U4atac minor spliceosomal RNA: a 128-nucleotide RNA sequence from Sinocyclocheilus grahami. Pairs were carried over by alignment from the consensus structure, which is taken from published work. The organism belongs to Sinocyclocheilus, within Eukaryota. Its Rfam clan is "U4 clan". The literature on the family includes a 2005 paper in RNA by Lorkovic et al., "Evolutionary conservation of minor U12-type spliceosome between plants and humans". Its family is annotated with spliceosomal tri-snRNP complex assembly, pre-mRNA 5'-splice site binding and U4atac snRNP in the Gene Ontology. Rfam's curators write: U4atac is an essential component of the minor U12-type spliceosome complex which is required for removal of the rarer class of eukaryotic introns (AT-AC, U12-type).
RNA sequence: ACUUUCCUUGUCAUGGGGUUGAGGACUGUUCAAUGAGCGUAUAGUGAGAGCAGGCCUGCUGACAACAUAUCAACACAAAUGUAUCACCUGACUUCUUAAAGUCAGAUAAUGGUGCAAUUUUUGGAAAC
Numbered sequence: 001a002c003u004u005u006c007c008u009u010g011u012c013a014u015g016g017g018g019u020u021g022a023g024g025a026c027u028g029u030u031c032a033a034u035g036a037g038c039g040u041a042u043a044g045u046g047a048g049a050g051c052a053g054g055c056c057u058g059c060u061g062a063c064a065a066c067a068u069a070u071c072a073a074c075a076c077a078a079a080u081g082u083a084u085c086a087c088c089u090g091a092c093u094u095c096u097u098a099a100a101g102u103c104a105g106a107u108a109a110u111g112g113u114g115c116a117a118u119u120u121u122u123g124g125a126a127a128c
Base pairs, nucleotide, nucleotide: 006018007017008016009015021059023057024056026053027052028051029050030049031048037045038044081115082114083113084112085111086110089104090103091102092101093100094099